Background
This 79-nucleotide RNA from Apolygus lucorum belongs to the Rfam family "Small nucleolar RNA Me28S-Gm3255". Taxonomically the source falls in Apolygus (Eukaryota, Panarthropoda, Neoptera, Prosorrhyncha). For this family Rfam cites "Genome-wide analyses of two families of snoRNA genes from Drosophila melanogaster, demonstrating the extensive utilization of introns for coding of snoRNAs" (Huang et al., RNA, 2005). The family's consensus secondary structure was predicted with PFOLD.
RNA sequence: UCCUACAUGAUGAUCAAAGCUAAAUUUCUGACACCUCAUAUGAAUCCUUGUGAUUCAAUUUUGCUUUUCUUCUGAUUGG
Numbered sequence: 001u002c003c004u005a006c007a008u009g010a011u012g013a014u015c016a017a018a019g020c021u022a023a024a025u026u027u028c029u030g031a032c033a034c035c036u037c038a039u040a041u042g043a044a045u046c047c048u049u050g051u052g053a054u055u056c057a058a059u060u061u062u063g064c065u066u067u068u069c070u071u072c073u074g075a076u077u078g079g
Stems, first nucleotide, its partner, number of pairs: 001079002040051004
Dot-bracket structure: ((.....................................((((....))))..........................))

The family has 10 seed sequences and 39 matches in Rfam 15.1.